[Rfam]
Nucleotides: 069
Base pairs, nucleotide, nucleotide: 001069002068003067004066005065
Number, partner (000 for none) and nucleotide at each position: 001069g002068u003067g004066c005065a006000g007000a008000u009000g010000a011000u012000g013000u014000g015000a016000a017000u018000g019000a020000u021000u022000u023000u024000u025000u026000u027000u028000c029000c030000a031000c032000u033000g034000a035000g036000u037000a038000a039000a040000c041000u042000g043000a044000u045000g046000c047000u048000u049000u050000c051000a052000a053000a054000g055000g056000a057000a058000c059000c060000a061000c062000u063000g064000a065005u066004g067003c068002a069001c

Shown here is a 69-nucleotide RNA from Odontophorus gujanensis, a member of the family "Small nucleolar RNA SNORD42". A reference for the family is Galardi et al. (2002), "Purified box C/D snoRNPs are able to reproduce site-specific 2'-O-methylation of target RNA in vitro", Mol Cell Biol. Rfam's curators write: snoRNA U42 is found in intron 3 of the ribosomal protein L23a (RPL23a) gene in humans and is also present in mice. The base pairs follow the family's consensus structure, which was predicted with PFOLD. By type it is a C/D-box small nucleolar RNA. It scores 49 bits against the family's covariance model. Rfam links the family to the GO terms nucleolus and RNA processing.